[Rfam]
RNA sequence: UCCGUCCGGGUCCGUGGUUGCCCCGUUCCGGCUGUGCCGGAGCGGCUAGCCGAUGCCAGUCGCAGGCGAAACGGUCCACGUAAGGCGAUGCACGAAGGGCUCCGGCCCGACAGGCCCCGGCCCGACGGGCUGCGGCCCGCGUGCUCCUCCGCAUGCGGGGGACGCCGAUCACGGUGCGGCUUAGAGGUAAGUCCUGCCUCGCCCCACCCGUCAGAUACGGGUGUCGGCGGGAGAAGGUCAGUAGUGGCGCCAGAGAUGGCAGAUGAGCUGCGAGAGCUUCAGCAGGCGGUUGUGGGGUCGAAGACCAGGUCGGCCGGGCGGA
Numbered sequence: 001u002c003c004g005u006c007c008g009g010g011u012c013c014g015u016g017g018u019u020g021c022c023c024c025g026u027u028c029c030g031g032c033u034g035u036g037c038c039g040g041a042g043c044g045g046c047u048a049g050c051c052g053a054u055g056c057c058a059g060u061c062g063c064a065g066g067c068g069a070a071a072c073g074g075u076c077c078a079c080g081u082a083a084g085g086c087g088a089u090g091c092a093c094g095a096a097g098g099g100c101u102c103c104g105g106c107c108c109g110a111c112a113g114g115c116c117c118c119g120g121c122c123c124g125a126c127g128g129g130c131u132g133c134g135g136c137c138c139g140c141g142u143g144c145u146c147c148u149c150c151g152c153a154u155g156c157g158g159g160g161g162a163c164g165c166c167g168a169u170c171a172c173g174g175u176g177c178g179g180c181u182u183a184g185a186g187g188u189a190a191g192u193c194c195u196g197c198c199u200c201g202c203c204c205c206a207c208c209c210g211u212c213a214g215a216u217a218c219g220g221g222u223g224u225c226g227g228c229g230g231g232a233g234a235a236g237g238u239c240a241g242u243a244g245u246g247g248c249g250c251c252a253g254a255g256a257u258g259g260c261a262g263a264u265g266a267g268c269u270g271c272g273a274g275a276g277c278u279u280c281a282g283c284a285g286g287c288g289g290u291u292g293u294g295g296g297g298u299c300g301a302a303g304a305c306c307a308g309g310u311c312g313g314c315c316g317g318g319c320g321g322a
Stems, first nucleotide, its partner, number of pairs: 001322009012313003015307005053293003056066001058181007075174002080169001084165001172300001193286005198231005235279004244271002250259003
Shown here is a 322-nucleotide RNA from Nocardioides psychrotolerans, a member of the family "raiA RNA".
Taxonomically the source falls in Nocardioides (Bacteria, Bacillati, Actinomycetota, Actinomycetes).
The match comes from Rfam's covariance-model search (115 bits).
Rfam classes the family as a riboswitch.